[Rfam]
RNA sequence: UGAAUCCUUCGGGGUCGGGUGAAAAUCCCAGCCGGCGGUAAUGAGCGAAUAGUUCCGAGCCCGCGACGGGGAGUGAGUGUCAAACACCAUUCCUCCUGAUUUGGUGUAGAUUCCAAAGCCGACAGUUAAAGUCUGGAUGGGAGAAGGAUGUG
Numbered sequence: 001u002g003a004a005u006c007c008u009u010c011g012g013g014g015u016c017g018g019g020u021g022a023a024a025a026u027c028c029c030a031g032c033c034g035g036c037g038g039u040a041a042u043g044a045g046c047g048a049a050u051a052g053u054u055c056c057g058a059g060c061c062c063g064c065g066a067c068g069g070g071g072a073g074u075g076a077g078u079g080u081c082a083a084a085c086a087c088c089a090u091u092c093c094u095c096c097u098g099a100u101u102u103g104g105u106g107u108a109g110a111u112u113c114c115a116a117a118g119c120c121g122a123c124a125g126u127u128a129a130a131g132u133c134u135g136g137a138u139g140g141g142a143g144a145a146g147g148a149u150g151u152g
Stems, first nucleotide, its partner, number of pairs: 004149007017029003031132002033121002035064004059119002068095006100117005123135003

Notes: Rfam assigns this 152-nucleotide RNA sequence from Halobacillus sp. BBL2006 to the family "FMN riboswitch aptamer (RFN element)".